[Rfam]
Nucleotides: 119
Base pairs, nucleotide, nucleotide: 004116005115006114007113008112009111010110017029018028019027031099032098033089034088035048036047037046038045043087044086069085070084071083072082073081091102092101093100
Number, partner (000 for none) and nucleotide at each position: 001000a002000g003000c004116u005115g006114u007113c008112u009111u010110c011000g012000a013000g014000g015000c016000g017029g018028g019027g020000u021000g022000u023000g024000a025000u026000u027019c028018c029017c030000c031099a032098c033089c034088g035048g036047c037046g038045g039000u040000a041000u042000a043087g044086u045038c046037c047036g048035c049000a050000a051000g052000c053000g054000g055000u056000g057000c058000a059000a060000g061000c062000u063000g064000c065000a066000u067000g068000a069085a070084c071083c072082g073081g074000u075000g076000c077000g078000a079000u080000c081073c082072c083071g084070g085069u086044a087043c088034c089033g090000a091102c092101a093100g094000u095000a096000u097000a098032g099031u100093c101092u102091g103000g104000a105000u106000g107000a108000g109000a110010g111009a112008a113007g114006g115005c116004g117000u118000g119000u